[Rfam]
RNA sequence: GGUCCGGGCAACCCACUCCUCCUCCUCCCAUGGGACGCCCGGGGAACAGCGACACUCCUCCUCCCAGUCGCUGUUCGGUUCUUUUCGGAAAGCCUGCCGCACCUCCUCCCGCGGCAGGCUUUUUCG
Numbered sequence: 001g002g003u004c005c006g007g008g009c010a011a012c013c014c015a016c017u018c019c020u021c022c023u024c025c026u027c028c029c030a031u032g033g034g035a036c037g038c039c040c041g042g043g044g045a046a047c048a049g050c051g052a053c054a055c056u057c058c059u060c061c062u063c064c065c066a067g068u069c070g071c072u073g074u075u076c077g078g079u080u081c082u083u084u085u086c087g088g089a090a091a092g093c094c095u096g097c098c099g100c101a102c103c104u105c106c107u108c109c110c111g112c113g114g115c116a117g118g119c120u121u122u123u124u125c126g
Stems, first nucleotide, its partner, number of pairs: 004042003008038002012034003044076010090121011
This 126-nucleotide RNA sequence from Affinirhizobium straminoryzae belongs to the Rfam family "Alphaproteobacterial ar14".
The source organism's lineage runs through Bacteria, Pseudomonadati, Pseudomonadota, Hyphomicrobiales and Affinirhizobium.
It scores 95 bits against the family's covariance model.
Rfam describes the family as follows. Smr14C2 was renamed NfeR1 (Nodule Formation Efficiency RNA) highly expressed in salt stress and during the symbiotic interaction on legume roots.